[Rfam]
RNA: Small nucleolar RNA SNORA26
Nucleotides: 122
Base pairs, nucleotide, nucleotide: 002051003050004049005048006047007046009044010043014040015039016038019035021032058116060114061113062112063111064110071101072100073099074098075097076096077095079093080092081091083090084089
Number, partner (000 for none) and nucleotide at each position: 001000g002051u003050g004049c005048c006047u007046u008000c009044u010043u011000a012000a013000a014040g015039u016038u017000u018000a019035c020000a021032u022000a023000g024000u025000a026000c027000u028000u029000u030000a031000a032021g033000a034000g035019g036000c037000u038016a039015a040014c041000a042000c043010a044009g045000a046007a047006g048005g049004g050003u051002a052000a053000a054000g055000g056000a057000a058116a059000g060114c061113u062112c063111c064110a065000u066000a067000a068000a069000a070000c071101c072100c073099a074098g075097a076096g077095a078000a079093g080092a081091g082000a083090u084089u085000g086000u087000a088000a089084a090083a091081c092080u093079c094000c095077u096076c097075u098074u099073u100072g101071g102000a103000u104000c105000c106000u107000g108000u109000c110064u111063g112062g113061a114060g115000u116058u117000a118000c119000a120000a121000c122000u